[Rfam]
Nucleotides: 113
Stems, first nucleotide, its partner, number of pairs: 006101002011064004016058001017034005041057005069094004075088004
Number, partner (000 for none) and nucleotide at each position: 001000a002000a003000c004000a005000a006101u007100a008000a009000a010000a011064a012063g013062g014061g015000g016058u017034g018033c019032u020031g021030g022000a023000g024000c025000a026000u027000u028000g029000u030021c031020c032019g033018g034017c035000u036000g037000a038000g039000a040000u041057a042056a043055a044054a045053u046000a047000g048000g049000c050000a051000g052000u053045a054044u055043u056042u057041u058016a059000a060000a061014c062013c063012c064011u065000g066000g067000a068000a069094c070093c071092u072091g073000a074000u075088c076087u077086g078085g079000a080000u081000a082000a083000u084000g085078c086077c087076a088075g089000c090000g091072u092071a093070g094069g095000a096000a097000a098000g099000c100007u101006a102000a103000c104000a105000a106000u107000a108000g109000c110000a111000g112000u113000g

TPP riboswitch aptamer (THI element): a 113-nucleotide RNA sequence from bacterium 1XD21-70. Rfam links the family to the GO term thiamine pyrophosphate binding. The match comes from Rfam's covariance-model search (66 bits).